This 75-nucleotide sequence from Acer saccharum belongs to the Rfam family "Plastid-ycf2 5UTR RNA". Lineage of the source: Eukaryota > Gunneridae > malvids > Hippocastanoideae > Acer. The family has 204 seed sequences and 3,521 matches in Rfam 15.1. About the family: Plastid ycf2 is a non-coding RNA (ncRNA) recognised in plastids. It was found in the prime untranslated region (5UTR) of ycf2 genes, it presents a tRNA-like motif which suggests it can be involved in mRNA maturation, particularly involved in defining the precise 5' end of the transcript. Pairs were carried over by alignment from the consensus structure, which was predicted with LocARNA. By type it is a cis-regulatory element.
[Rfam]
RNA sequence: AUGCAUCCAAUAGGAAUUUAACCUGUGAAUUCACCAAUUAUAAGUUGGGCACUUCAACCAUUUAGCCAUGGAUGC
Dot-bracket structure: ..((((((.(((((.......))))).............((..((((((...........)))))).))))))))